[Rfam]
RNA sequence: AGAAACCACUAGGGGUGUCUUUUAAAGACUGAGAUUAAAGUAUUACUUUAAGACCCUUAGAACCUGAUCUGGUUUAUACCAGCGUAGGGAAGUGGCAAGAAGUGAUA
Dot-bracket structure: .....(((((((((.((((((...)))))......(((((.....))))))..)))).....((((..((((......))))..))))..)))))............
Numbered sequence: 001a002g003a004a005a006c007c008a009c010u011a012g013g014g015g016u017g018u019c020u021u022u023u024a025a026a027g028a029c030u031g032a033g034a035u036u037a038a039a040g041u042a043u044u045a046c047u048u049u050a051a052g053a054c055c056c057u058u059a060g061a062a063c064c065u066g067a068u069c070u071g072g073u074u075u076a077u078a079c080c081a082g083c084g085u086a087g088g089g090a091a092g093u094g095g096c097a098a099g100a101a102g103u104g105a106u107a
Stems, first nucleotide, its partner, number of pairs: 006095005011057004016051001017029005036050005063088004069082004
Shown here is a 107-nucleotide sequence from Gracilibacillus kekensis, a member of the family "TPP riboswitch aptamer (THI element)".
Taxonomically the source falls in Gracilibacillus (Bacteria, Bacillati, Bacilli, Caryophanales).
Pairs were carried over by alignment from the consensus structure, which is taken from published work.